The family of this 128-nucleotide sequence from Sodalis praecaptivus is "Phenylalanine leader peptide". Its family is annotated with cellular amino acid metabolic process in the Gene Ontology. On this family, see Zurawski et al., Proc Natl Acad Sci U S A 1978: "Nucleotide sequence of the leader region of the phenylalanine operon of Escherichia coli". The organism belongs to Sodalis, within Bacteria. The family's consensus secondary structure was predicted with CMfinder.
[Rfam]
RNA sequence: UAUGCCGACCACCCCGUUUUUCUUCGCUUUCUUUUUUAUCUUCCGAUGCUAGGAGGCCGGCGCGCGUCGUGUGAGAAAUAAAGCGAAGACGAACCGCAAAGCCUCCUGAACCAGGGGGCUUUUUUUGU
Numbered sequence: 001u002a003u004g005c006c007g008a009c010c011a012c013c014c015c016g017u018u019u020u021u022c023u024u025c026g027c028u029u030u031c032u033u034u035u036u037u038a039u040c041u042u043c044c045g046a047u048g049c050u051a052g053g054a055g056g057c058c059g060g061c062g063c064g065c066g067u068c069g070u071g072u073g074a075g076a077a078a079u080a081a082a083g084c085g086a087a088g089a090c091g092a093a094c095c096g097c098a099a100a101g102c103c104u105c106c107u108g109a110a111c112c113a114g115g116g117g118g119c120u121u122u123u124u125u126u127g128u
Base pairs, nucleotide, nucleotide: 016094017093018092019091021089022088023087024086025085026084027083028082029081030080032078033077034076036074037073038072039071042054043053044052055068056067057066098122099121100120101119102118103117104116105115106114107113